[Rfam]
RNA sequence: UUUGCCGUGAGGCAAAAUCUGAAAGAAGCCAUCAGCAAAGUUAGCGUAUUGACGUACAGAAACCUGGUAUAAGGCUGAAUAUCGGAGAGCGAGCGAGCCAUGGAUUGCUACAGCCCGAAAAUCAACCGUAACCGCUUACAGUAAAUCAGGCAGCACCUAACGAAAGAAAUGGAU
Numbered sequence: 001u002u003u004g005c006c007g008u009g010a011g012g013c014a015a016a017a018u019c020u021g022a023a024a025g026a027a028g029c030c031a032u033c034a035g036c037a038a039a040g041u042u043a044g045c046g047u048a049u050u051g052a053c054g055u056a057c058a059g060a061a062a063c064c065u066g067g068u069a070u071a072a073g074g075c076u077g078a079a080u081a082u083c084g085g086a087g088a089g090c091g092a093g094c095g096a097g098c099c100a101u102g103g104a105u106u107g108c109u110a111c112a113g114c115c116c117g118a119a120a121a122u123c124a125a126c127c128g129u130a131a132c133c134g135c136u137u138a139c140a141g142u143a144a145a146u147c148a149g150g151c152a153g154c155a156c157c158u159a160a161c162g163a164a165a166g167a168a169a170u171g172g173a174u
Stems, first nucleotide, its partner, number of pairs: 001016006028174001030172001036166001040161005046156002049153003063150006074142003081136001083134003087116001089114002093108004
This 174-nucleotide sequence from Williamwhitmania taraxaci belongs to the Rfam family "Group II catalytic intron D1-D4-3". Group II introns are found in rRNA, tRNA and mRNA of organelles in fungi, plants and protists, and also in mRNA in bacteria. A search with the family's covariance model found it, with a score of 103 bits.